The record is an 84-nucleotide RNA from Branchiostoma lanceolatum, which matches "mir-2060 microRNA precursor family" in Rfam.
The family has 7 seed sequences and 3,696 matches in Rfam 15.1.
The match comes from Rfam's covariance-model search (73 bits).
Its family is annotated with RISC complex and miRNA-mediated post-transcriptional gene silencing in the Gene Ontology.
RNA sequence: GUAUGUGGAUGGUGUUCAGCACCAGGGACAGGUGUUUGCCUGUGUGUAGAUGGCGUUCAGCACCAAGGAGAGAUGUGUUUAGGC
Numbered sequence: 001g002u003a004u005g006u007g008g009a010u011g012g013u014g015u016u017c018a019g020c021a022c023c024a025g026g027g028a029c030a031g032g033u034g035u036u037u038g039c040c041u042g043u044g045u046g047u048a049g050a051u052g053g054c055g056u057u058c059a060g061c062a063c064c065a066a067g068g069a070g071a072g073a074u075g076u077g078u079u080u081a082g083g084c
Stems, first nucleotide, its partner, number of pairs: 002069001010065007018057003022053003026045001028043006